Small nucleolar RNA snR60/Z15/Z230/Z193/J17: a 105-nucleotide RNA sequence from Trichoderma citrinoviride. The family is grouped with related families in Rfam's "SNORD77 clan". The literature on the family includes a 2001 paper in Nucleic Acids Res by Qu et al., "Identification of 10 novel snoRNA gene clusters from Arabidopsis thaliana". Its family is annotated with nucleolus and RNA processing in the Gene Ontology. Pairs were carried over by alignment from the consensus structure. Rfam classes the family as a C/D-box small nucleolar RNA.
RNA sequence: CUCGGUCGUGUGAUGAUACACAUACCAAAUGCAUAGUUCAUCUGAGUAAUCUGAUGAAAAACCUUACCUUCAAUUCUUUCGCUCCCAUCUGACAUGCCGACCAUU
Numbered sequence: 001c002u003c004g005g006u007c008g009u010g011u012g013a014u015g016a017u018a019c020a021c022a023u024a025c026c027a028a029a030u031g032c033a034u035a036g037u038u039c040a041u042c043u044g045a046g047u048a049a050u051c052u053g054a055u056g057a058a059a060a061a062c063c064u065u066a067c068c069u070u071c072a073a074u075u076c077u078u079u080c081g082c083u084c085c086c087a088u089c090u091g092a093c094a095u096g097c098c099g100a101c102c103a104u105u
Stems, first nucleotide, its partner, number of pairs: 004102005